[Rfam]
RNA sequence: UUCUUGGCUUAAACGCUCAAUUGAUCCCUUAACUUUAUUUAAAGCAUUAAUUUGGUCCUUUCUGUUAAUUUAAGUCAAAAAAAUGUUAAGUUUUGAUCCCUUAACUUAUUUAAUUAGUAUUAGUUUGGUCCCUAAACUUAACAUUUUUUGAAUUAAAUUAAUAGAACGGACCAAACCGAUACUUGAAAUAAAUUUAAGGGACCUAAACGAACCUUUUAUUACUUAUGGGA
Numbered sequence: 001u002u003c004u005u006g007g008c009u010u011a012a013a014c015g016c017u018c019a020a021u022u023g024a025u026c027c028c029u030u031a032a033c034u035u036u037a038u039u040u041a042a043a044g045c046a047u048u049a050a051u052u053u054g055g056u057c058c059u060u061u062c063u064g065u066u067a068a069u070u071u072a073a074g075u076c077a078a079a080a081a082a083a084u085g086u087u088a089a090g091u092u093u094u095g096a097u098c099c100c101u102u103a104a105c106u107u108a109u110u111u112a113a114u115u116a117g118u119a120u121u122a123g124u125u126u127g128g129u130c131c132c133u134a135a136a137c138u139u140a141a142c143a144u145u146u147u148u149u150g151a152a153u154u155a156a157a158u159u160a161a162u163a164g165a166a167c168g169g170a171c172c173a174a175a176c177c178g179a180u181a182c183u184u185g186a187a188a189u190a191a192a193u194u195u196a197a198g199g200g201a202c203c204u205a206a207a208c209g210a211a212c213c214u215u216u217u218a219u220u221a222c223u224u225a226u227g228g229g230a
Stems, first nucleotide, its partner, number of pairs: 002228002005225003021207002023203001025201001027199006034192006042184002